[Rfam]
RNA sequence: UCCGAUAAUAGCAAACCCAGGGUGACCUGGGGACGCAAAGCCACGGGUCCAGCAGCGCUGGAUAGCCGGGUUGCCGAAG
Dot-bracket structure: ..........((...((((((....))))))...))..((((.((((((((((...)))))))..))))))).......
RNA: c-di-GMP-I-UAU riboswitch aptamer
Organism: Trichloromonas acetexigens